RNA sequence: UGCACUGCAUAGUAUCUGCACUCAGCAGUUUAUUCCUGCUGAUGUGUUCAAAGGACAGUGAGAUAGAAAUUCAAUAUCUGGCAUUGUUGGUUUUCUUGGCUUUAUGCAGUUAAGCCUGGUGUUUAUAUUGAUACAAUU
Number, nucleotide and partner (000 for none) at each position: 001u000002g000003c060004a059005c058006u057007g056008c000009a000010u000011a000012g000013u000014a000015u054016c053017u052018g047019c046020a045021c044022u000023c000024a040025g039026c038027a037028g036029u000030u000031u000032a000033u000034u000035c000036c028037u027038g026039c025040u024041g000042a000043u000044g021045u020046g019047u018048u000049c000050a000051a000052a017053g016054g015055a000056c007057a006058g005059u004060g003061a000062g000063a000064u127065a126066g000067a124068a123069a122070u121071u119072c118073a117074a000075u000076a000077u000078c000079u000080g000081g107082c106083a105084u104085u000086g000087u000088u000089g000090g000091u000092u000093u000094u000095c000096u000097u000098g000099g000100c000101u000102u000103u000104a084105u083106g082107c081108a000109g000110u000111u000112a000113a000114g000115c000116c000117u073118g072119g071120u000121g070122u069123u068124u067125a000126u065127a064128u000129u000130g000131a000132u000133a000134c000135a000136a000137u000138u000
RNA: Small nucleolar RNA SNORA8